[Rfam]
Nucleotides: 579
Base pairs, nucleotide, nucleotide: 001480002479003477004476005475007474008473009472010471011470012469013468016464017463020428021427022426023425024424025322027320028319029318030317031316032315033314034313035311036310041056042055043054044053065306066305067304068303069302070301071300075121076120077119078118087107088106089105091103092102093101125295126294128293129292130291131290134289135288136284137283138282139280140279141278142277146185147184148183149182150181151180153160154159164177165176166175167174191272192271193270194269196240197239198238199237200236201235202234206229210227211226212225213224214223215222216221243263244262246260247259248258249257250256326380327379328378329377330376331375332374338369339368340367343362344361347358348357349356350355387418392413393412394411395410396409397408398407434456435455436454437453438452439451440450441449483578485575488571489570491568493565494564495563496562498560499559500558503555504554505553506552507551508550509549510548511547512546513545514544515543518540519539520538521537522536523535524534525533526532527531
Number, partner (000 for none) and nucleotide at each position: 001480u002479g003477g004476c005475g006000g007474g008473a009472g010471a011470g012469c013468a014000c015000u016464g017463c018000a019000a020428c021427g022426g023425g024424a025322g026000g027320a028319g029318c030317g031316u032315g033314c034313g035311g036310u037000u038000u039000a040000a041056u042055u043054g044053g045000a046000u047000u048000c049000a050000a051000c052000g053044c054043c055042g056041g057000a058000a059000a060000a061000c062000u063000c064000a065306c066305c067304g068303g069302g070301g071300g072000c073000g074000a075121c076120c077119g078118g079000c080000a081000c082000a083000u084000g085000u086000g087107g088106g089105c090000c091103a092102g093101g094000c095000u096000g097000a098000c099000g100000a101093c102092c103091u104000u105089g106088c107087c108000c109000g110000a111000a112000u113000a114000a115000g116000a117000g118078c119077c120076g121075g122000a123000g124000a125295g126294g127000u128293g129292g130291u131290g132000c133000a134289u135288g136284g137283c138282c139280a140279u141278c142277g143000u144000c145000a146185g147184c148183u149182c150181g151180u152000a153160c154159c155000g156000u157000a158000g159154g160153g161000c162000g163000u164177u165176c166175a167174c168000u169000u170000a171000a172000g173000u174167g175166u176165g177164a178000u179000a180151a181150c182149g183148a184147g185146c186000g187000a188000g189000a190000c191272c192271c193270c194269c195000g196240u197239c198238c199237c200236c201235a202234g203000u204000u205000g206229c207000c208000a209000c210227c211226u212225g213224u214223c215222c216221c217000u218000c219000c220000g221216g222215g223214g224213g225212c226211a227210g228000a229206g230000c231000a232000c233000a234202c235201u236200g237199g238198g239197g240196a241000g242000a243263c244262c245000g246260c247259c248258a249257g250256c251000g252000c253000u254000a255000a256250g257249c258248u259247g260246g261000a262244g263243g264000a265000a266000g267000g268000u269194g270193g271192g272191g273000u274000c275000a276000a277142c278141g279140g280139u281000a282138g283137g284136u285000c286000a287000g288135u289134a290131c291130g292129c293128c294126c295125c296000g297000a298000a299000u300071c301070c302069c303068c304067c305066g306065g307000g308000c309000u310036a311035c312000a313034c314033g315032c316031g317030c318029g319028c320027u321000a322025c323000a324000a325000a326380g327379g328378g329377c330376g331375g332374g333000a334000c335000a336000a337000u338369g339368g340367g341000u342000u343362g344361c345000g346000a347358c348357c349356c350355c351000g352000a353000a354000a355350g356349g357348g358347g359000g360000a361344g362343c363000u364000a365000a366000u367340c368339c369338u370000g371000a372000a373000a374332c375331c376330c377329g378328u379327c380326c381000g382000u383000a384000g385000u386000u387418c388000a389000g390000a391000u392413c393412g394411a395410g396409g397408g398407c399000u400000g401000u402000a403000a404000c405000u406000c407398g408397c409396c410395c411394u412393c413392g414000u415000g416000a417000a418387g419000c420000u421000g422000g423000a424024u425023u426022c427021c428020g429000u430000a431000g432000u433000a434456a435455u436454c437453g438452c439451g440450g441449g442000u443000c444000a445000a446000c447000a448000u449441c450440c451439c452438g453437c454436g455435g456434u457000g458000a459000a460000u461000g462000c463017g464016c465000c466000c467000c468013u469012g470011c471010u472009c473008u474007u475005u476004g477003c478000a479002c480001a481000c482000a483578c484000c485575g486000c487000c488571c489570g490000u491568c492000a493565a494564a495563c496562c497000a498560u499559c500558c501000g502000a503555g504554u505553u506552g507551g508550c509549u510548c511547u512546a513545g514544g515543u516000g517000a518540g519539g520538c521537c522536c523535u524534g525533u526532u527531c528000u529000a530000u531527g532526g533525g534524c535523a536522g537521g538520g539519u540518c541000g542000a543515a544514c545513c546512u547511g548510g549509g550508g551507u552506c553505a554504g555503c556000g557000a558500g559499g560498a561000g562496g563495g564494u565493u566000a567000a568491g569000u570489c571488g572000u573000a574000a575485c576000a577000a578483g579000g
Record summary:
This 579-nucleotide part of an RNA from Candidatus Aciduliprofundum boonei belongs to the Rfam family "Archaeal small subunit ribosomal RNA". The family has 86 seed sequences and 709 matches in Rfam 15.1. Its Rfam clan is "SSU clan". Rfam's curators put it in the seed alignment.